HNH endonuclease-associated RNA and ORF (HEARO) RNA: a 223-nucleotide sequence from Caldicoprobacter faecalis. It is annotated as a non-coding RNA gene. Lineage of the source: Bacteria > Bacillati > Bacillota > Caldicoprobacterales > Caldicoprobacter. The literature on the family includes a 2009 paper in Nature by Weinberg et al., "Exceptional structured noncoding RNAs revealed by bacterial metagenome analysis".
RNA sequence: GUCAACUACCCACCACUUAAAGAAGCGGGGGCUUGUAAAGAGCCCUGGUUGACUAGCCUCAGCCACCAGCAAAAAGUUGACGGGGCUACGUUAGACAGGUCAUGACACCCCGGGGUGCUGCUCAAGCUCCGGGCUCUGUCGUACAGGUCUAAACAGUCCUGAGGGGUAGGGACAGUGACCUGUGCAUGACAAGCCUGUCUAACAUUGGCGAUGAGCACCUAAC
Numbered sequence: 001g002u003c004a005a006c007u008a009c010c011c012a013c014c015a016c017u018u019a020a021a022g023a024a025g026c027g028g029g030g031g032c033u034u035g036u037a038a039a040g041a042g043c044c045c046u047g048g049u050u051g052a053c054u055a056g057c058c059u060c061a062g063c064c065a066c067c068a069g070c071a072a073a074a075a076g077u078u079g080a081c082g083g084g085g086c087u088a089c090g091u092u093a094g095a096c097a098g099g100u101c102a103u104g105a106c107a108c109c110c111c112g113g114g115g116u117g118c119u120g121c122u123c124a125a126g127c128u129c130c131g132g133g134c135u136c137u138g139u140c141g142u143a144c145a146g147g148u149c150u151a152a153a154c155a156g157u158c159c160u161g162a163g164g165g166g167u168a169g170g171g172a173c174a175g176u177g178a179c180c181u182g183u184g185c186a187u188g189a190c191a192a193g194c195c196u197g198u199c200u201a202a203c204a205u206u207g208g209c210g211a212u213g214a215g216c217a218c219c220u221a222a223c
Base pairs, nucleotide, nucleotide: 001053002052003051004050005049006048007047008046010031011030013028014027017023032042033041034040056209057208058207061087062086063085064084090203091202092201093200094199095198096197097196098195099194100193105139106138109133110132111131112130113129114128115127116126117219119217120216121215122214123213124212141185142184143183144182145181146180147179148178149177153176154175156173157172158171159170160169162167